Source information
A member of the RNA family "GcvB RNA" from Paraphotobacterium marinum, 198 nucleotides long. The source organism's lineage runs through Bacteria, Pseudomonadati, Gammaproteobacteria, Vibrionaceae and Paraphotobacterium.
RNA sequence: UCUGUUGAAUAAGUUCCAGAUAAAAACUAUAUUACGUGCAUGCGAAUAAAGUAUUAAAUUAUUUUAUUUGUCAUGUUGUGUUUGUAUUUUGAUUAGCAUUUGCUAAUCUAGUAGUUUAAUCUACUAAUUUACUUCCUAUAUUUUUGGAUUAUUAACCAAAAUGUUUAGCACUGAAAUCUUUAAUCAGUGCUUUUUUUU
Numbered sequence: 001u002c003u004g005u006u007g008a009a010u011a012a013g014u015u016c017c018a019g020a021u022a023a024a025a026a027c028u029a030u031a032u033u034a035c036g037u038g039c040a041u042g043c044g045a046a047u048a049a050a051g052u053a054u055u056a057a058a059u060u061a062u063u064u065u066a067u068u069u070g071u072c073a074u075g076u077u078g079u080g081u082u083u084g085u086a087u088u089u090u091g092a093u094u095a096g097c098a099u100u101u102g103c104u105a106a107u108c109u110a111g112u113a114g115u116u117u118a119a120u121c122u123a124c125u126a127a128u129u130u131a132c133u134u135c136c137u138a139u140a141u142u143u144u145u146g147g148a149u150u151a152u153u154a155a156c157c158a159a160a161a162u163g164u165u166u167a168g169c170a171c172u173g174a175a176a177u178c179u180u181u182a183a184u185c186a187g188u189g190c191u192u193u194u195u196u197u198u
Stems, first nucleotide, its partner, number of pairs: 009062004015058001021056003025052001028050001030048004036043002091108007110125005140165001142163001144161001167191008